RNA sequence: CCUGCGGAGAACUAUACAAACGAUAAUAGCGAGCGUUUGGCGAGGUCGGGUUCGUAGAAGCAGGAA
Numbered sequence: 001c002c003u004g005c006g007g008a009g010a011a012c013u014a015u016a017c018a019a020a021c022g023a024u025a026a027u028a029g030c031g032a033g034c035g036u037u038u039g040g041c042g043a044g045g046u047c048g049g050g051u052u053c054g055u056a057g058a059a060g061c062a063g064g065a066a
Stems, first nucleotide, its partner, number of pairs: 001064005009053005021048003029041002
Rfam assigns this 66-nucleotide sequence from Bacillus manliponensis to the family "RAGATH-18 RNA". Actinobacteria, Firmicutes, Fusobacteria, Thermotogae (1 example). The base pairs follow the family's consensus structure, which is taken from published work. The organism belongs to Bacillus, within Bacteria.